This 170-nucleotide sequence from Porphyromonas gingivalis belongs to the Rfam family "Bacteroidales-1 6S-Bacteroidales RNA suggested". From the family's description: Bacteroidales-1 was first reported in a comparative genomics-based approach of genome and metagenome sequences from Weinberg et al. 2010 In a high-resolution transcriptome map study of Bacteroides thetaiotaomicron, Ryan et al. 2020 report this sRNA as 6S RNA homologue of Bacteroides, in the study they obtain evidence of small product RNAs (pRNAs) related to 6S function. Taxonomically the source falls in Porphyromonas gingivalis (Bacteria, Bacteroidota, Bacteroidales, Porphyromonadaceae).
RNA sequence: AGCCGCACUGUUAGAUCGGGGAAACUCAUCAUAACAACUAUUCCGAGGACAAUUUCAUCGCUGAUGGCGGGCCGCACCUUCGGGUUGCUUUGCACAGCGGAUUACAAAGGUGGUGGAAUCCUCAAAUCUUGUCUUUCGGAGUUUACGCUAUCCGCAGUGCGGCUUUUCAU
Numbered sequence: 001a002g003c004c005g006c007a008c009u010g011u012u013a014g015a016u017c018g019g020g021g022a023a024a025c026u027c028a029u030c031a032u033a034a035c036a037a038c039u040a041u042u043c044c045g046a047g048g049a050c051a052a053u054u055u056c057a058u059c060g061c062u063g064a065u066g067g068c069g070g071g072c073c074g075c076a077c078c079u080u081c082g083g084g085u086u087g088c089u090u091u092g093c094a095c096a097g098c099g100g101a102u103u104a105c106a107a108a109g110g111u112g113g114u115g116g117a118a119u120c121c122u123c124a125a126a127u128c129u130u131g132u133c134u135u136u137c138g139g140a141g142u143u144u145a146c147g148c149u150a151u152c153c154g155c156a157g158u159g160c161g162g163c164u165u166u167u168c169a170u
Stems, first nucleotide, its partner, number of pairs: 052119011065106002072100004076085003086094003
It is one of the family's seed sequences.